Rfam assigns this 76-nucleotide sequence from Alligator sinensis to the family "Mammalian CPEB3 ribozyme". The source organism's lineage runs through Eukaryota, Chordata, Sarcopterygii, Archosauria and Alligator.

RNA sequence: GUAGCAAGUUUGAGGCCAUAGCAGGAGAACUCAUGGUUCGGCCGUGUCAGAAUCUAGCAAAUCUGCAAAUUCUGCA
Number, nucleotide and partner (000 for none) at each position: 001g000002u000003a000004g000005c000006a000007a000008g000009u000010u000011u000012g000013a000014g043015g042016c041017c040018a000019u000020a000021g075022c074023a073024g072025g071026a070027g039028a038029a037030c000031u000032c000033a000034u000035g000036g000037u029038u028039c027040g017041g016042c015043c014044g000045u000046g000047u000048c065049a064050g063051a062052a000053u060054c000055u000056a000057g000058c000059a000060a053061a000062u051063c050064u049065g048066c000067a000068a000069a000070u026071u025072c024073u023074g022075c021076a000